The record is a 133-nucleotide RNA from Durio zibethinus, which matches "Small nucleolar RNA snoR74" in Rfam. Lineage of the source: Eukaryota > Viridiplantae > Euphyllophyta > Mesangiospermae > Durio. For this family Rfam cites "Experimental RNomics: identification of 140 candidates for small non-messenger RNAs in the plant Arabidopsis thaliana" (Marker et al., Curr Biol, 2002). The base pairs follow the family's consensus structure, which was predicted with WAR.
RNA sequence: AAAAAAGCAGGGGCCUGUUUCCUUUAAUGAGCCAGGUCUCUCGUAUAAGUCAGGGAAAUGGAACCCAUUGUUCUUGGGUGAACCUUUGCCUUGUUGCCUGUGGCUUGGAGGUUCAGUAGAUGAUGGCACAUAU
Number, nucleotide and partner (000 for none) at each position: 001a000002a000003a000004a000005a050006a000007g000008c000009a000010g000011g039012g038013g000014c036015c035016u034017g033018u000019u000020u000021c000022c000023u000024u000025u000026a000027a000028u000029g000030a000031g000032c000033c017034a016035g015036g014037u000038c012039u011040c000041u000042c000043g000044u000045a000046u000047a000048a000049g000050u005051c000052a000053g000054g000055g000056a000057a000058a000059u000060g000061g000062a000063a000064c000065c126066c125067a124068u123069u122070g121071u120072u119073c000074u000075u000076g000077g000078g000079u115080g114081a113082a112083c111084c110085u109086u000087u000088g000089c000090c000091u000092u000093g000094u000095u000096g000097c000098c000099u000100g000101u000102g000103g000104c000105u000106u000107g000108g000109a085110g084111g083112u082113u081114c080115a079116g000117u000118a000119g072120a071121u070122g069123a068124u067125g066126g065127c000128a000129c000130a000131u000132a000133u000